[Rfam]
RNA sequence: AUUACUGUGAGGUAGUGUCUGAAGGAGAUGCGGAAAAUUAUAAAGAACCGCAGGCGAAAAGGUAGACCCUAAUGCAAGAAGUGUGAAUCACAGCGGCGGGGUAAGCUGGCGACUUUUCGAAAAGUGAGGAAGCCCACUAAAAGGCACUUUCUUUAGAAGUCAGACCGAGAAAGUGUGGCUUACAACGUGAUGGUGAAGGGUAUGCCUUGAAGGAAAAUGCG
Numbered sequence: 001a002u003u004a005c006u007g008u009g010a011g012g013u014a015g016u017g018u019c020u021g022a023a024g025g026a027g028a029u030g031c032g033g034a035a036a037a038u039u040a041u042a043a044a045g046a047a048c049c050g051c052a053g054g055c056g057a058a059a060a061g062g063u064a065g066a067c068c069c070u071a072a073u074g075c076a077a078g079a080a081g082u083g084u085g086a087a088u089c090a091c092a093g094c095g096g097c098g099g100g101g102u103a104a105g106c107u108g109g110c111g112a113c114u115u116u117u118c119g120a121a122a123a124g125u126g127a128g129g130a131a132g133c134c135c136a137c138u139a140a141a142a143g144g145c146a147c148u149u150u151c152u153u154u155a156g157a158a159g160u161c162a163g164a165c166c167g168a169g170a171a172a173g174u175g176u177g178g179c180u181u182a183c184a185a186c187g188u189g190a191u192g193g194u195g196a197a198g199g200g201u202a203u204g205c206c207u208u209g210a211a212g213g214a215a216a217a218u219g220c221g
Base pairs, nucleotide, nucleotide: 001016002015003014004013005012006011049219050218055213059208060207061206062205063204065203066201067200068199069198070197088196089195090194091193096188097187098186101183102182103181104180105179106178108134109133110132113128114127115126

Shown here is a 221-nucleotide RNA from Exobacillus caeni, a member of the family "Group II catalytic intron D1-D4-3".
The organism belongs to Exobacillus, within Bacteria.
The base pairs follow the family's consensus structure.
Rfam describes the family as follows. Group II introns are found in rRNA, tRNA and mRNA of organelles in fungi, plants and protists, and also in mRNA in bacteria.